[Rfam]
Rhizobiales sRNA Atu_C7: a 149-nucleotide sequence from Gellertiella hungarica.
RNA sequence: UAAGUUAUAAGAAUAGCCAUGAGUUUGGUUCACCCGAAGGUUCCCCUGUUCUCCUGGUGCGUCUCAGAGCCGCAGGCGUUCUCCUCCCUCGCGCUGCAGGUGAUGCACCCAUCUGGCCUCGCCGGACGCAAGCCCGAGCGAGGCAUUUU
Numbered sequence: 001u002a003a004g005u006u007a008u009a010a011g012a013a014u015a016g017c018c019a020u021g022a023g024u025u026u027g028g029u030u031c032a033c034c035c036g037a038a039g040g041u042u043c044c045c046c047u048g049u050u051c052u053c054c055u056g057g058u059g060c061g062u063c064u065c066a067g068a069g070c071c072g073c074a075g076g077c078g079u080u081c082u083c084c085u086c087c088c089u090c091g092c093g094c095u096g097c098a099g100g101u102g103a104u105g106c107a108c109c110c111a112u113c114u115g116g117c118c119u120c121g122c123c124g125g126a127c128g129c130a131a132g133c134c135c136g137a138g139c140g141a142g143g144c145a146u147u148u149u
Stems, first nucleotide, its partner, number of pairs: 056109008072097004076092003116144007
Dot-bracket structure: .......................................................((((((((........(((((((...........))).))))....))))))))......(((((((...............))))))).....

Record summary: Rfam classes the family as a small RNA.